[Rfam]
RNA sequence: CUACUCUCUCCAUCCCAUAAUGUAAGACGUUUUUGCAAACUAUAUUAGCUUGCAAAAACGUCUAAUAUUAUGGGACGGAGGGAGUAG
Numbered sequence: 001c002u003a004c005u006c007u008c009u010c011c012a013u014c015c016c017a018u019a020a021u022g023u024a025a026g027a028c029g030u031u032u033u034u035g036c037a038a039a040c041u042a043u044a045u046u047a048g049c050u051u052g053c054a055a056a057a058a059c060g061u062c063u064a065a066u067a068u069u070a071u072g073g074g075a076c077g078g079a080g081g082g083a084g085u086a087g
Base pairs, nucleotide, nucleotide: 003085004084005083007081008080009079010078011077013075014074015073016072017071019069020068021067022066023065025063026062027061028060029059030058031057032056033055034054035053036052037051038050040048041047
The family of this 87-nucleotide RNA sequence from Triticum aestivum is "MIR1120/MIR1122 microRNA precursor family". On this family, see Yao et al., Genome Biol 2007: "Cloning and characterization of microRNAs from wheat (Triticum aestivum L.)". The family's consensus secondary structure was predicted with RNAalifold. The sequence is in the family's curated seed alignment.